[Rfam]
RNA sequence: AGAGUGAGUUCAAGGCCGCAGCAGAAGUGCUUACGGUACGACCCUGUCAAAUUCCAGCAAAUCUGCAAAUGCUGCU
Numbered sequence: 001a002g003a004g005u006g007a008g009u010u011c012a013a014g015g016c017c018g019c020a021g022c023a024g025a026a027g028u029g030c031u032u033a034c035g036g037u038a039c040g041a042c043c044c045u046g047u048c049a050a051a052u053u054c055c056a057g058c059a060a061a062u063c064u065g066c067a068a069a070u071g072c073u074g075c076u
Stems, first nucleotide, its partner, number of pairs: 014043002017040001020076005026070001027039003048065002051062003
Source information
This 76-nucleotide RNA sequence from Alligator mississippiensis belongs to the Rfam family "Mammalian CPEB3 ribozyme". Pairs were carried over by alignment from the consensus structure, which is taken from published work. The source organism's lineage runs through Eukaryota, Chordata, Gnathostomata, Euteleostomi and Alligator.